The family of this 266-nucleotide RNA sequence from Aquibacillus salsiterrae is "Bacterial large signal recognition particle RNA". For this family Rfam cites "SRPDB: Signal Recognition Particle Database" (Rosenblad et al., Nucleic Acids Res, 2003). NCBI's taxonomy places the organism under Bacteria, Bacillati, Bacilli, Caryophanales, Aquibacillus. About the family: The signal recognition particle (SRP) is a universally conserved ribonucleoprotein involved in the co-translational targeting of proteins to membranes. Its Rfam clan is "SRP clan".
[Rfam]
RNA sequence: CCGUGCUAAGCGGGGAGGUAGCGGUGCCCUGUACUCGCAAUCCGCUGUAGCGAGGCUGAAUUCCCAUCCGAGGUGGAGUGGCUGCAUGGUCUGCCUUAAGGGAUUGGUGUUGACACUCGGGUCCUGCGCAAUGGGAACCCGUGAACCCUGUCAGAUCCGGAAGGAAGCAGCAGUAAGCGGUUAUUCUCGUGUGCCGCGGGGAAGCCUGGGUCGAGCCAUGAACUUAAGUAACGCAUGGGGUUGUUUCAUCGAAGAUGGGUGCACGG
Numbered sequence: 001c002c003g004u005g006c007u008a009a010g011c012g013g014g015g016a017g018g019u020a021g022c023g024g025u026g027c028c029c030u031g032u033a034c035u036c037g038c039a040a041u042c043c044g045c046u047g048u049a050g051c052g053a054g055g056c057u058g059a060a061u062u063c064c065c066a067u068c069c070g071a072g073g074u075g076g077a078g079u080g081g082c083u084g085c086a087u088g089g090u091c092u093g094c095c096u097u098a099a100g101g102g103a104u105u106g107g108u109g110u111u112g113a114c115a116c117u118c119g120g121g122u123c124c125u126g127c128g129c130a131a132u133g134g135g136a137a138c139c140c141g142u143g144a145a146c147c148c149u150g151u152c153a154g155a156u157c158c159g160g161a162a163g164g165a166a167g168c169a170g171c172a173g174u175a176a177g178c179g180g181u182u183a184u185u186c187u188c189g190u191g192u193g194c195c196g197c198g199g200g201g202a203a204g205c206c207u208g209g210g211u212c213g214a215g216c217c218a219u220g221a222a223c224u225u226a227a228g229u230a231a232c233g234c235a236u237g238g239g240g241u242u243g244u245u246u247c248a249u250c251g252a253a254g255a256u257g258g259g260u261g262c263a264c265g266g
Stems, first nucleotide, its partner, number of pairs: 001266006009057003012030004017025001019023001034054005063259006072250005079243005085237004092230002096227005104220001106217003115211008123200006129191002132189005137182001139180004148173004156165003